The family of this 418-nucleotide sequence from Pseudomonas sp. v388 is "Pseudomonas sRNA CrcZ". Rfam links the family to the GO term carbon catabolite repression of transcription. The match comes from Rfam's covariance-model search (299 bits).

[Rfam]
RNA sequence: ACAACAAAAACAAUAAAUGCGCAGCAACCUAAUAAGAACAAGACGUACGGCUCUGACAUAACAAGAACAACACGGACAGAGGCGCAGCUAACAGAUUUUUUUGGAGUGGAUAGCUUUACAGGGCGUGCUGGUACAGAAGCCCGCAACCGGACAGAGAACAAUAAAACUACCUUCAGGUAGCUCCCGGACCGGCUGGAUCAUGAUGUUGUGCAGACUAGUGAUUGAAGUGACUCAGCGCUCAAAAAAAUACGUUUGCUCUUGACCCCGCAUGGGGGUCGCACAAGAACGCAGUAAAGGGCGUGCCGCCAAAAACAAGAACAGGCCGCCCUAUAAGAAUAAAAAGAGCACGUGAAACCACAAUUGGAGGAGAGCCCAGGCUCUCCUUUGUGCUUUCCGGCGAUCCGGAUUCUCCCGCCCC
Number, nucleotide and partner (000 for none) at each position: 001a000002c000003a000004a000005c000006a000007a000008a000009a000010a000011c000012a000013a000014u000015a000016a000017a000018u000019g000020c000021g000022c000023a000024g000025c000026a000027a000028c000029c000030u000031a000032a000033u000034a000035a000036g000037a000038a000039c000040a000041a000042g000043a000044c000045g000046u000047a000048c084049g083050g000051c081052u080053c079054u078055g000056a000057c000058a000059u000060a000061a000062c000063a000064a000065g000066a000067a000068c000069a000070a000071c000072a000073c000074g000075g000076a000077c000078a054079g053080a052081g051082g000083c049084g048085c000086a000087g000088c000089u000090a000091a000092c000093a000094g000095a000096u000097u000098u000099u244100u243101u242102u241103g240104g000105a000106g000107u000108g000109g000110a000111u000112a000113g236114c235115u000116u000117u000118a000119c000120a000121g000122g000123g000124c000125g000126u000127g000128c000129u000130g000131g000132u000133a000134c000135a000136g000137a000138a000139g000140c000141c000142c000143g000144c195145a194146a000147c192148c191149g190150g189151a000152c000153a000154g000155a000156g000157a000158a000159c000160a000161a000162u000163a000164a000165a000166a000167c180168u179169a178170c177171c176172u000173u000174c000175a000176g171177g170178u169179a168180g167181c000182u000183c000184c000185c000186g000187g000188a000189c150190c149191g148192g147193c000194u145195g144196g000197a000198u000199c000200a000201u000202g000203a000204u000205g000206u000207u000208g000209u000210g000211c000212a000213g000214a000215c000216u000217a000218g000219u000220g000221a000222u000223u000224g000225a000226a000227g000228u000229g000230a000231c000232u000233c000234a000235g114236c113237g000238c000239u000240c103241a102242a101243a100244a099245a000246a000247a000248u000249a000250c000251g000252u000253u000254u000255g000256c000257u000258c000259u000260u000261g000262a276263c275264c274265c273266c272267g000268c000269a000270u000271g000272g266273g265274g264275g263276u262277c000278g000279c000280a000281c000282a000283a000284g000285a000286a000287c000288g000289c000290a000291g000292u000293a000294a000295a000296g000297g398298g000299c396300g395301u325302g324303c000304c322305g000306c000307c000308a000309a000310a000311a000312a000313c000314a000315a000316g000317a000318a000319c000320a000321g000322g304323c000324c302325g301326c000327c000328c000329u000330a000331u000332a000333a000334g000335a000336a000337u000338a000339a000340a000341a000342a000343g000344a000345g390346c389347a388348c387349g000350u000351g000352a000353a000354a000355c000356c000357a000358c000359a000360a000361u000362u000363g000364g385365a384366g383367g382368a381369g380370a379371g378372c377373c000374c000375a000376g000377g372378c371379u370380c369381u368382c367383c366384u365385u364386u000387g348388u347389g346390c345391u000392u000393u000394c000395c300396g299397g000398c297399g000400a000401u000402c000403c000404g000405g000406a000407u000408u000409c000410u000411c000412c000413c000414g000415c000416c000417c000418c000
For this family Rfam cites "Identification of 17 Pseudomonas aeruginosa sRNAs and prediction of sRNA-encoding genes in 10 diverse pathogens using the bioinformatic tool sRNAPredict2" (Livny et al., Nucleic Acids Res, 2006). NCBI's taxonomy places the organism under Bacteria, Pseudomonadota, Gammaproteobacteria, Pseudomonadaceae, Pseudomonas. Pairs were carried over by alignment from the consensus structure, which was predicted with WAR.